[Rfam]
RNA sequence: AUACAAAAAUUAAUAAAACAUAACUCUUUAUAUUUUAUUUAGGAUUGUCGUUCACGAAAACUUUGGUCGGUUUGGGGUGAACGACUUCUUUUUUUAUUUGUGU
Dot-bracket structure: ....(((......(((((.(..........).))))))))......(((((((((.....................)))))))))..................

ctRNA: a 103-nucleotide sequence from Staphylococcus aureus. Rfam classes the family as an antisense RNA. A reference for the family is Novick et al. (1989), "pT181 plasmid replication is regulated by a countertranscript-driven transcriptional attenuator", Cell. About the family: Rolling circle replication plasmids contain a number of mechanisms to maintain a low copy number. One of these methods is to transcribe a small RNA called ctRNA (for counter-transcribed RNA) than is transcribed on the opposite strand to RepB the replication initiation protein. ctRNA binds to the mRNA of repB and causes translational inhibition. The source organism's lineage runs through Bacteria, Bacillati, Bacillota, Staphylococcaceae and Staphylococcus. The family's consensus secondary structure is taken from published work.